The record is an 82-nucleotide sequence from Paenibacillus durus, which matches "c-di-GMP-I-GGC riboswitch aptamer" in Rfam. Pairs were carried over by alignment from the consensus structure, which is taken from published work. The family is grouped with related families in Rfam's "c-di-GMP_I riboswitch clan". The family has 40 seed sequences and 1,298 matches in Rfam 15.1. It scores 66 bits against the family's covariance model.
RNA sequence: UACGACAAAGGCAAACCUAUCGUGAGGUAGGGACGCAAAGCCAUAGGGCCUCUUAAUUAAGGAGGAAGCCUGGUUACCGAAA
Dot-bracket structure: (.((......((...((((((....))))))..[))..((((..(((.((.............))..])))))))..))..)
Numbered sequence: 001u002a003c004g005a006c007a008a009a010g011g012c013a014a015a016c017c018u019a020u021c022g023u024g025a026g027g028u029a030g031g032g033a034c035g036c037a038a039a040g041c042c043a044u045a046g047g048g049c050c051u052c053u054u055a056a057u058u059a060a061g062g063a064g065g066a067a068g069c070c071u072g073g074u075u076a077c078c079g080a081a082a
Stems, first nucleotide, its partner, number of pairs: 001082001003079002011036002016031006034068001039075004045071003049065002